[Rfam]
RNA sequence: AGUUGCUUGUCGGAGUGCCUUAGGGCUGAGAUUGCAAAUUCGCAAAAUCCGUAUACCUGAUCAGGAUAAUUCCUGCGUAGGAAACAAGGCAUCGGCAUGC
Numbered sequence: 001a002g003u004u005g006c007u008u009g010u011c012g013g014a015g016u017g018c019c020u021u022a023g024g025g026c027u028g029a030g031a032u033u034g035c036a037a038a039u040u041c042g043c044a045a046a047a048u049c050c051g052u053a054u055a056c057c058u059g060a061u062c063a064g065g066a067u068a069a070u071u072c073c074u075g076c077g078u079a080g081g082a083a084a085c086a087a088g089g090c091a092u093c094g095g096c097a098u099g100c
Stems, first nucleotide, its partner, number of pairs: 006088005011051004016045001017026003033044003056081004062075004
A member of the RNA family "TPP riboswitch aptamer (THI element)" from Succinivibrio dextrinosolvens, 100 nucleotides long. Lineage of the source: Bacteria > Pseudomonadati > Succinivibrionaceae > Succinivibrio > Succinivibrio dextrinosolvens.